[Rfam]
Nucleotides: 135
Stems, first nucleotide, its partner, number of pairs: 003059005014051002016046003023037004070128006090108001093105003
Number, partner (000 for none) and nucleotide at each position: 001000g002000u003059c004058u005057u006056c007055u008000c009000a010000c011000u012000g013000a014051g015050u016046u017045c018044c019000u020000u021000u022000c023037u024036g025035u026034c027000g028000a029000c030000a031000u032000g033000u034026g035025g036024c037023a038000a039000u040000u041000c042000a043000u044018g045017g046016a047000u048000u049000c050015a051014c052000a053000a054000a055007a056006g057005a058004a059003g060000a061000a062000g063000a064000g065000a066000c067000a068000a069000u070128u071127c072126a073125c074124a075123g076000a077000g078000c079000u080000c081000a082000c083000c084000u085000u086000a087000u088000u089000u090108u091000g092000c093105c094104u095103g096000u097000u098000c099000u100000c101000u102000c103095c104094a105093g106000a107000g108090g109000u110000a111000u112000a113000u114000u115000c116000u117000g118000c119000u120000g121000u122000u123075u124074u125073g126072u127071g128070a129000g130000a131000c132000a133000u134000c135000c